[Rfam]
Rfam assigns this 170-nucleotide RNA sequence from Eragrostis curvula to the family "MIR2118 microRNA precursor family". The base pairs follow the family's consensus structure, which was predicted with RNAalifold.
RNA sequence: GUCGGAAAGAGGAAGAAACAAUUCUAAGAGCAAUGGGCAUGGGAACAUGGAGGAAAGCAUGAUUUUCUCUUUUCCUCUAAUUACAGGUGCAGAUUUGUUACAUGCUUUCCCAAUGCCUCCCAAGUCCCAUGCCUAUUGUUCUUUGUUGUUCCUUCCCCUUACCUUUGGCU
Dot-bracket structure: .........(((..(((......(.(((((((.(((((((((((.(((.(.(((((((.............................................)))))))).))).........))))))))))).))))))).).......)))..)))..........
Rfam 15.1 lists 2,377 matches to the family in 45 species. The organism belongs to Eragrostis, within Eukaryota. Its family is annotated with miRNA-mediated post-transcriptional gene silencing and RISC complex in the Gene Ontology.